A member of the RNA family "Small nucleolar RNA SNORD121A" from Aquarana catesbeiana, 81 nucleotides long. The family's RNA type in Rfam is C/D-box small nucleolar RNA. Its family is annotated with RNA processing and nucleolus in the Gene Ontology. On this family, see Yang et al., Nucleic Acids Res 2006: "snoSeeker: an advanced computational package for screening of guide and orphan snoRNA genes in the human genome". The family has 26 seed sequences and 881 matches in Rfam 15.1. The match comes from Rfam's covariance-model search (78 bits).

RNA sequence: AGCCAGGACACAGUGAUGUAUUGAUUUCCAAGCACAUAUCUGAAUUUUGUGUGGAGACCUCAAUUUCUGAGUGUUCUGGCU
Numbered sequence: 001a002g003c004c005a006g007g008a009c010a011c012a013g014u015g016a017u018g019u020a021u022u023g024a025u026u027u028c029c030a031a032g033c034a035c036a037u038a039u040c041u042g043a044a045u046u047u048u049g050u051g052u053g054g055a056g057a058c059c060u061c062a063a064u065u066u067c068u069g070a071g072u073g074u075u076c077u078g079g080c081u
Stems, first nucleotide, its partner, number of pairs: 001081006008074004
Dot-bracket structure: ((((((.((((...........................................................)))).))))))